This 336-nucleotide part of an RNA from Parahoeflea phototrophica belongs to the Rfam family "Bacterial large subunit ribosomal RNA".

[Rfam]
RNA sequence: UGAGAGAACUGCGUUGAAGGAACUCGGCAAAUUGCACGCGUAACUUCGGAAGAAGCGUGACCCUUUUCUGCGCAAGCAGAUGAGGGUGGCACAGACCAGGGGGUAGCGACUGUUUAUCAAAAACACAGGGCUCUGCGAAGUCGCAAGACGACGUAUAGGGCCUGACGCCUGCCCGGUGCCGGAAGGUUAAGAGGAGAGGUGCAAGCUUUGAAUCGAAGCCCCGGUAAACGGCGGCCGUAACUAUAACGGUCCUAAGGUAGCGAAAUUCCUUGUCGGGUAAGUUCCGACCUGCACGAAUGGCGUAACGACUUCCCCGCUGUCUCCAACGCAGACUCA
Numbered sequence: 001u002g003a004g005a006g007a008a009c010u011g012c013g014u015u016g017a018a019g020g021a022a023c024u025c026g027g028c029a030a031a032u033u034g035c036a037c038g039c040g041u042a043a044c045u046u047c048g049g050a051a052g053a054a055g056c057g058u059g060a061c062c063c064u065u066u067u068c069u070g071c072g073c074a075a076g077c078a079g080a081u082g083a084g085g086g087u088g089g090c091a092c093a094g095a096c097c098a099g100g101g102g103g104u105a106g107c108g109a110c111u112g113u114u115u116a117u118c119a120a121a122a123a124c125a126c127a128g129g130g131c132u133c134u135g136c137g138a139a140g141u142c143g144c145a146a147g148a149c150g151a152c153g154u155a156u157a158g159g160g161c162c163u164g165a166c167g168c169c170u171g172c173c174c175g176g177u178g179c180c181g182g183a184a185g186g187u188u189a190a191g192a193g194g195a196g197a198g199g200u201g202c203a204a205g206c207u208u209u210g211a212a213u214c215g216a217a218g219c220c221c222c223g224g225u226a227a228a229c230g231g232c233g234g235c236c237g238u239a240a241c242u243a244u245a246a247c248g249g250u251c252c253u254a255a256g257g258u259a260g261c262g263a264a265a266u267u268c269c270u271u272g273u274c275g276g277g278u279a280a281g282u283u284c285c286g287a288c289c290u291g292c293a294c295g296a297a298u299g300g301c302g303u304a305a306c307g308a309c310u311u312c313c314c315c316g317c318u319g320u321c322u323c324c325a326a327c328g329c330a331g332a333c334u335c336a
Stems, first nucleotide, its partner, number of pairs: 001336004009331008018322003035059005044049001060087006067080005088092001100315004105310002107307002111125003128163008136153001140149003166302004171232003176229002178225005185220003191214002196209005233251006252256001262289001272288006

About this RNA: Rfam 15.1 lists 51,934 matches to the family in 10,816 species. Lineage of the source: Bacteria > Alphaproteobacteria > Hyphomicrobiales > Rhizobiaceae > Parahoeflea phototrophica.